[Rfam]
RNA sequence: CACUCCUGUUUCUGCCCUAAAUUCAUCCUCAUUGAAUUAUAGGUUCUGGUGAUGGAGAAGAUCAAGCCCGUCAACGGCCGUUGGUGAAUCUGUCAAAUGUUUGUAACCUCGCCUUCGGCUUUUGGCGGGAUCGUGUGGCUGGUCAGUGUUCGAAGACAAGGCAUUUUCUGGUGCUAGUCGGCUGGCCUCUACUACAUUC
Numbered sequence: 001c002a003c004u005c006c007u008g009u010u011u012c013u014g015c016c017c018u019a020a021a022u023u024c025a026u027c028c029u030c031a032u033u034g035a036a037u038u039a040u041a042g043g044u045u046c047u048g049g050u051g052a053u054g055g056a057g058a059a060g061a062u063c064a065a066g067c068c069c070g071u072c073a074a075c076g077g078c079c080g081u082u083g084g085u086g087a088a089u090c091u092g093u094c095a096a097a098u099g100u101u102u103g104u105a106a107c108c109u110c111g112c113c114u115u116c117g118g119c120u121u122u123u124g125g126c127g128g129g130a131u132c133g134u135g136u137g138g139c140u141g142g143u144c145a146g147u148g149u150u151c152g153a154a155g156a157c158a159a160g161g162c163a164u165u166u167u168c169u170g171g172u173g174c175u176a177g178u179c180g181g182c183u184g185g186c187c188u189c190u191a192c193u194a195c196a197u198u199c
Stems, first nucleotide, its partner, number of pairs: 003057004016043004020038006067129008076120005083113004135192004141187005155179002159175001161174005
This 199-nucleotide sequence from Candidozyma auris belongs to the Rfam family "Small nucleolar RNA snR43". It scores 107 bits against the family's covariance model. The family's RNA type in Rfam is H/ACA-box small nucleolar RNA. The literature on the family includes a 1996 paper in Cell by Balakin et al., "The RNA world of the nucleolus: two major families of small RNAs defined by different box elements with related functions". The family is grouped with related families in Rfam's "SNORA9 clan". The organism belongs to Candidozyma auris, within Eukaryota.